Source information: A member of the RNA family "msiK RNA" from Leucobacter sp. Ag1, 60 nucleotides long. The base pairs follow the family's consensus structure, which is taken from published work.

[Rfam]
Nucleotides: 060
Stems, first nucleotide, its partner, number of pairs: 009052002012050001015047002028045006
Number, partner (000 for none) and nucleotide at each position: 001000c002000g003000a004000c005000a006000u007000u008000u009052c010051g011000c012050u013000c014000a015047c016046a017000c018000u019000a020000c021000g022000g023000a024000u025000c026000g027000u028045c029044c030043g031042g032041c033040a034000c035000g036000u037000g038000c039000c040033u041032g042031c043030c044029g045028g046016u047015g048000g049000a050012a051010c052009g053000a054000a055000a056000g057000g058000a059000a060000a